[Rfam]
RNA: RNase MRP
RNA sequence: GGGCAUUCGGAAGGCUUGCUAUCUGGGCUACAUGCAGAGAACACUGUUUCUCCCCCGCCUGCCCAGGGGAAAGUCCCCGGACUCGUGGCAGAAAGUGCCCUGGAUGAUUCCAACGUCGGCACGCACUCCUCCUCCAAAGCUAAGAUGCUCUCAUGAGCUGAGCUCGGAGAUUGCUUGUCGACUUUGUCAGCGUUACUAGUAAUGCAAGUGAGCAUGUACUGGCGCUCAAACAGAACGGGGCUCAUUCUCGGAAUGCU
Numbered sequence: 001g002g003g004c005a006u007u008c009g010g011a012a013g014g015c016u017u018g019c020u021a022u023c024u025g026g027g028c029u030a031c032a033u034g035c036a037g038a039g040a041a042c043a044c045u046g047u048u049u050c051u052c053c054c055c056c057g058c059c060u061g062c063c064c065a066g067g068g069g070a071a072a073g074u075c076c077c078c079g080g081a082c083u084c085g086u087g088g089c090a091g092a093a094a095g096u097g098c099c100c101u102g103g104a105u106g107a108u109u110c111c112a113a114c115g116u117c118g119g120c121a122c123g124c125a126c127u128c129c130u131c132c133u134c135c136a137a138a139g140c141u142a143a144g145a146u147g148c149u150c151u152c153a154u155g156a157g158c159u160g161a162g163c164u165c166g167g168a169g170a171u172u173g174c175u176u177g178u179c180g181a182c183u184u185u186g187u188c189a190g191c192g193u194u195a196c197u198a199g200u201a202a203u204g205c206a207a208g209u210g211a212g213c214a215u216g217u218a219c220u221g222g223c224g225c226u227c228a229a230a231c232a233g234a235a236c237g238g239g240g241c242u243c244a245u246u247c248u249c250g251g252a253a254u255g256c257u
Stems, first nucleotide, its partner, number of pairs: 002257007010249002014209006022067007037052005072242002075240004087099004101112004120177002123174003129169004138164003147158004210227004215222001